RNA: HNH endonuclease-associated RNA and ORF (HEARO) RNA
Organism: Candidatus Thiomargarita nelsonii
RNA sequence: GUCACUGUCCAUAAAUAACUCAUCGGUUUGAGUUAUUUUAAAGUGACCCGCCUAAGUUCUUUGAGAACGACGUUAGGGGCGAAAAUAUAGGCACCUUGGGAUGCUUCGGAAGUCUCAAGCUCUGCGGGGAGUCAUUAAACCGGUCUGAUGGAAAGGCCCGUGUGGCUUUCAGUCAAAACCGUCCUAUAACAUUGGCUAGGAGACCAUUAC
Dot-bracket structure: ((((((.(.(....(....).....)..(.....)....).))))))..(((.(.((((.....))))...((((.(((...........((..((((((((...[[....))))))))....)).(((((((((...((.(((((......).)))).)))))))))))............))).)))).).))).....]].......